[Rfam]
RNA sequence: UAGAAGAAACUGUGAAGCUCAGGAGGGAUAGCGCCAUGAAUGACAUGUAUUAUGGUUCUCAUUAGCGCUAUCCAUCCUGAGUUUCAUCGCUUCUUCUU
Numbered sequence: 001u002a003g004a005a006g007a008a009a010c011u012g013u014g015a016a017g018c019u020c021a022g023g024a025g026g027g028a029u030a031g032c033g034c035c036a037u038g039a040a041u042g043a044c045a046u047g048u049a050u051u052a053u054g055g056u057u058c059u060c061a062u063u064a065g066c067g068c069u070a071u072c073c074a075u076c077c078u079g080a081g082u083u084u085c086a087u088c089g090c091u092u093c094u095u096c097u098u
Stems, first nucleotide, its partner, number of pairs: 010089001016083009026073009

This 98-nucleotide RNA sequence from Hibiscus syriacus belongs to the Rfam family "MIR390 microRNA precursor family".
The match comes from Rfam's covariance-model search (100 bits).
Taxonomically the source falls in Hibiscus (Eukaryota, Tracheophyta, Magnoliopsida, Malvales).